[Rfam]
RNA sequence: CGGUGCGGGGAUCGCCCUCCGUCAGCGCAUCGCGCCCACGGGGGCGUUUGUG
Numbered sequence: 001c002g003g004u005g006c007g008g009g010g011a012u013c014g015c016c017c018u019c020c021g022u023c024a025g026c027g028c029a030u031c032g033c034g035c036c037c038a039c040g041g042g043g044g045c046g047u048u049u050g051u052g
Base pairs, nucleotide, nucleotide: 016044017043018042019041020040021039022038025035026034027033028032
The family of this 52-nucleotide RNA sequence from Jannaschia pohangensis is "ffh sRNA". The family's consensus secondary structure is taken from published work. On this family, see Meyer et al., BMC Genomics 2009: "Identification of candidate structured RNAs in the marine organism 'Candidatus Pelagibacter ubique'".